[Rfam]
Record summary: The family of this 225-nucleotide sequence from Thermanaerosceptrum fracticalcis is "HNH endonuclease-associated RNA and ORF (HEARO) RNA". By type it is a non-coding RNA gene.
RNA sequence: GUCAACUACCCACCGCCUAUAGAGGCGGGGGCUUGUAGGAGAAAUCCAGCAAGCCUGGUUGAUUAGCCCCCUUACGAAAGUAAGGAGCCGUUCAAAGGGAAUGACAUAGGCACUCCGGGGUACUCCACACGCUCCGGACACUGCGGCUGGUGGUUAAACAUCGCUGAUGGGCAGGCGAAGUGCUGCCAGCAAAAACCCCUUUGAACAAGGGCGAAGUGGACCAAC
Numbered sequence: 001g002u003c004a005a006c007u008a009c010c011c012a013c014c015g016c017c018u019a020u021a022g023a024g025g026c027g028g029g030g031g032c033u034u035g036u037a038g039g040a041g042a043a044a045u046c047c048a049g050c051a052a053g054c055c056u057g058g059u060u061g062a063u064u065a066g067c068c069c070c071c072u073u074a075c076g077a078a079a080g081u082a083a084g085g086a087g088c089c090g091u092u093c094a095a096a097g098g099g100a101a102u103g104a105c106a107u108a109g110g111c112a113c114u115c116c117g118g119g120g121u122a123c124u125c126c127a128c129a130c131g132c133u134c135c136g137g138a139c140a141c142u143g144c145g146g147c148u149g150g151u152g153g154u155u156a157a158a159c160a161u162c163g164c165u166g167a168u169g170g171g172c173a174g175g176c177g178a179a180g181u182g183c184u185g186c187c188a189g190c191a192a193a194a195a196c197c198c199c200u201u202u203g204a205a206c207a208a209g210g211g212c213g214a215a216g217u218g219g220a221c222c223a224a225c
Stems, first nucleotide, its partner, number of pairs: 001063008010031002013028002016024001032053004066212004071084005090206010110144002114138008124220005146190009158181002161178005